[Rfam]
Overview:
MIR6152 microRNA precursor family: a 97-nucleotide RNA sequence from Nicotiana sylvestris. It scores 94 bits against the family's covariance model. Its family is annotated with miRNA-mediated post-transcriptional gene silencing and RISC complex in the Gene Ontology. Pairs were carried over by alignment from the consensus structure, which was predicted with RNAalifold.

RNA sequence: UGAACAAAUUAUUGUAUUCGACUUUAUUCACUGCGUGAAAUAGAGAAUUACACUGAUUUUAAAACGGAAAGUGAAUCAAUUAACAUAAUAGACUCCU
Numbered sequence: 001u002g003a004a005c006a007a008a009u010u011a012u013u014g015u016a017u018u019c020g021a022c023u024u025u026a027u028u029c030a031c032u033g034c035g036u037g038a039a040a041u042a043g044a045g046a047a048u049u050a051c052a053c054u055g056a057u058u059u060u061a062a063a064a065c066g067g068a069a070a071g072u073g074a075a076u077c078a079a080u081u082a083a084c085a086u087a088a089u090a091g092a093c094u095c096c097u
Stems, first nucleotide, its partner, number of pairs: 002096001004094001009091007017083002020081002023078001026076006034066003037059003041055003